[Rfam]
RNA sequence: AUGGUCUGGGCUAUGUCUCUAGGUUGGUGUAUUUGGUGCCUUUGCCAUGACCAAGAGAAAUCACCAGGUAUGACCCAUAGCUGGGCCAGCCUGAGCAGUAACAGGUGUGGGCAUCUAACAGCAGCUUGAUGCCCAUGUAUAAUACUGCACACAGUU
Numbered sequence: 001a002u003g004g005u006c007u008g009g010g011c012u013a014u015g016u017c018u019c020u021a022g023g024u025u026g027g028u029g030u031a032u033u034u035g036g037u038g039c040c041u042u043u044g045c046c047a048u049g050a051c052c053a054a055g056a057g058a059a060a061u062c063a064c065c066a067g068g069u070a071u072g073a074c075c076c077a078u079a080g081c082u083g084g085g086c087c088a089g090c091c092u093g094a095g096c097a098g099u100a101a102c103a104g105g106u107g108u109g110g111g112c113a114u115c116u117a118a119c120a121g122c123a124g125c126u127u128g129a130u131g132c133c134c135a136u137g138u139a140u141a142a143u144a145c146u147g148c149a150c151a152c153a154g155u156u
Stems, first nucleotide, its partner, number of pairs: 003052004007047003015040001017038001018036002021033001023032002064084004069079003092151002095148006103140001108135003112131004117126001119124001
RNA: Small Cajal body specific RNA 16